[Rfam]
RNA sequence: GAACUGUGGUUUCUCUUCAAAUCGUAUAAAUAUUUCGCCUUUUACUAAAGAUUUUCGUGGAGAGGAACAAUUCUGAGUCUUAAUCCAAUUUUUUGAGGCCCUGCAGAGGCAGGGCU
Numbered sequence: 001g002a003a004c005u006g007u008g009g010u011u012u013c014u015c016u017u018c019a020a021a022u023c024g025u026a027u028a029a030a031u032a033u034u035u036c037g038c039c040u041u042u043u044a045c046u047a048a049a050g051a052u053u054u055u056c057g058u059g060g061a062g063a064g065g066a067a068c069a070a071u072u073c074u075g076a077g078u079c080u081u082a083a084u085c086c087a088a089u090u091u092u093u094u095g096a097g098g099c100c101c102u103g104c105a106g107a108g109g110c111a112g113g114g115c116u
Stems, first nucleotide, its partner, number of pairs: 003078003009068011028054004033049003096116001098115006

Rfam assigns this 116-nucleotide RNA from Saimiri boliviensis to the family "U5 spliceosomal RNA". By type it is a spliceosomal small nuclear RNA. The source organism's lineage runs through Eukaryota, Chordata, Gnathostomata, Theria and Saimiri boliviensis. The base pairs follow the family's consensus structure, which is taken from published work.